[Rfam]
RNA: Small nucleolar RNA Z155
RNA sequence: CAUUGAUAUGAUGAUAAGAUUUGUUGAAAAAAGUGUUGAUUAAAAAAAAAUCAGACUAUAAUUAUUUGAUCAACG
Numbered sequence: 001c002a003u004u005g006a007u008a009u010g011a012u013g014a015u016a017a018g019a020u021u022u023g024u025u026g027a028a029a030a031a032a033g034u035g036u037u038g039a040u041u042a043a044a045a046a047a048a049a050a051u052c053a054g055a056c057u058a059u060a061a062u063u064a065u066u067u068g069a070u071c072a073a074c075g
Stems, first nucleotide, its partner, number of pairs: 001075001003073004
Dot-bracket structure: (.((((...............................................................)))).)